[Rfam]
The family of this 374-nucleotide sequence from Prauserella cavernicola is "Bacterial RNase P class A".
By type it is a ribozyme.
The family's consensus secondary structure is taken from published work.
RNA sequence: CGAGUUGGCAGGGCGGCCGCGACCUGAGUGGUCGAGGAAAGUCCGGACUCCGUAGGGCAGGGUGGUUGCUAACGGCAACCCGGGGUGACCCGCGGGACAGUGCCACAGAAAACAGACCGCCUCGCGGCAACGCGGGGUAAGGGUGAAACGGUGGUGUAAGAGACCACCAGCGUCCCGGGCGACCGGGACGGCUCGGUAAACCCCACCCGGAGCAAGGCCAAGAGGGAGCUCAGGCUCCUGCGCAGGCGUUCGAGGGUAGCCCGCCCGAUGCCUGCGGGUAGGCCGCUGGAGCCUGCCGGCAACGGCAGGCCGAGAUGGAUGGCCGCCGCCCGCGUACGCGGGGACAGAAUCCGGCUUACAUGCCAACUCGUCCA
Numbered sequence: 001c002g003a004g005u006u007g008g009c010a011g012g013g014c015g016g017c018c019g020c021g022a023c024c025u026g027a028g029u030g031g032u033c034g035a036g037g038a039a040a041g042u043c044c045g046g047a048c049u050c051c052g053u054a055g056g057g058c059a060g061g062g063u064g065g066u067u068g069c070u071a072a073c074g075g076c077a078a079c080c081c082g083g084g085g086u087g088a089c090c091c092g093c094g095g096g097a098c099a100g101u102g103c104c105a106c107a108g109a110a111a112a113c114a115g116a117c118c119g120c121c122u123c124g125c126g127g128c129a130a131c132g133c134g135g136g137g138u139a140a141g142g143g144u145g146a147a148a149c150g151g152u153g154g155u156g157u158a159a160g161a162g163a164c165c166a167c168c169a170g171c172g173u174c175c176c177g178g179g180c181g182a183c184c185g186g187g188a189c190g191g192c193u194c195g196g197u198a199a200a201c202c203c204c205a206c207c208c209g210g211a212g213c214a215a216g217g218c219c220a221a222g223a224g225g226g227a228g229c230u231c232a233g234g235c236u237c238c239u240g241c242g243c244a245g246g247c248g249u250u251c252g253a254g255g256g257u258a259g260c261c262c263g264c265c266c267g268a269u270g271c272c273u274g275c276g277g278g279u280a281g282g283c284c285g286c287u288g289g290a291g292c293c294u295g296c297c298g299g300c301a302a303c304g305g306c307a308g309g310c311c312g313a314g315a316u317g318g319a320u321g322g323c324c325g326c327c328g329c330c331c332g333c334g335u336a337c338g339c340g341g342g343g344a345c346a347g348a349a350u351c352c353g354g355c356u357u358a359c360a361u362g363c364c365a366a367c368u369c370g371u372c373c374a
Stems, first nucleotide, its partner, number of pairs: 001370010011359001012327007020034005039357003043354005048212004055262004060208005065079005080094001081092004095203002100201002102197003117142002119138008150168006170192001171190008216284004242275006254266004291310008